[Rfam]
RNA sequence: CGGUGCGGAUUAACGCUGCGUUAACCUUUUCCCAUUAUGACUCCGAUCAUCCAGUUUGCCUGGAUUCGAGUGGUUCCUGUCCACUCUGUUUGACGCCUCCCUGUCAUCGACUUUCCGGCCGCCGUUCUCGGCGGCCUUUUUUUG
Numbered sequence: 001c002g003g004u005g006c007g008g009a010u011u012a013a014c015g016c017u018g019c020g021u022u023a024a025c026c027u028u029u030u031c032c033c034a035u036u037a038u039g040a041c042u043c044c045g046a047u048c049a050u051c052c053a054g055u056u057u058g059c060c061u062g063g064a065u066u067c068g069a070g071u072g073g074u075u076c077c078u079g080u081c082c083a084c085u086c087u088g089u090u091u092g093a094c095g096c097c098u099c100c101c102u103g104u105c106a107u108c109g110a111c112u113u114u115c116c117g118g119c120c121g122c123c124g125u126u127c128u129c130g131g132c133g134g135c136c137u138u139u140u141u142u143u144g
Stems, first nucleotide, its partner, number of pairs: 001045003005016002017039002022037003049065004068086006092105004117136008
This 144-nucleotide RNA sequence from Hansschlegelia zhihuaiae belongs to the Rfam family "Alphaproteobacterial sRNA BjrC1505". The literature on the family includes a 2012 paper in RNA Biol by Madhugiri et al., "Small RNAs of the Bradyrhizobium/Rhodopseudomonas lineage and their analysis". NCBI's taxonomy places the organism under Bacteria, Pseudomonadati, Hyphomicrobiales, Methylopilaceae, Hansschlegelia.